[Rfam]
A member of the RNA family "c-di-AMP riboswitch aptamer (ydaO/yuaA leader)" from Streptomyces phaeofaciens, 166 nucleotides long. The pairing is the family consensus, mapped onto this sequence. The organism belongs to Streptomyces, within Bacteria. The match comes from Rfam's covariance-model search (98 bits).
RNA sequence: CGUGCGCACGCGCCGAAUCCCGCAAGGGAACCGGGGAACCACCAACUUGGGGUGAAUCGCGCCGAAGCCGCCGUGAACUCGCAGAGUCACGAACGGUAUACGCGCGUAGGAGACCUUCCCGCUCCGAACCCGUCAGCUAACCCGGUAGGCGACGGUAGGAAAGGAG
Numbered sequence: 001c002g003u004g005c006g007c008a009c010g011c012g013c014c015g016a017a018u019c020c021c022g023c024a025a026g027g028g029a030a031c032c033g034g035g036g037a038a039c040c041a042c043c044a045a046c047u048u049g050g051g052g053u054g055a056a057u058c059g060c061g062c063c064g065a066a067g068c069c070g071c072c073g074u075g076a077a078c079u080c081g082c083a084g085a086g087u088c089a090c091g092a093a094c095g096g097u098a099u100a101c102g103c104g105c106g107u108a109g110g111a112g113a114c115c116u117u118c119c120c121g122c123u124c125c126g127a128a129c130c131c132g133u134c135a136g137c138u139a140a141c142c143c144g145g146u147a148g149g150c151g152a153c154g155g156u157a158g159g160a161a162a163g164g165a166g
Stems, first nucleotide, its partner, number of pairs: 011151004018029003030146006040049002050131003058106004109125004